RNA sequence: CGGAUCGUAAAAAUGGUUGUGCUGUGUUGUUACGCUCGAAAUUCAUAUCACAGCCAUUUUGACGAGUUCGA
Dot-bracket structure: ....((((.((((((((((((...(((.................))).)))))))))))).))))......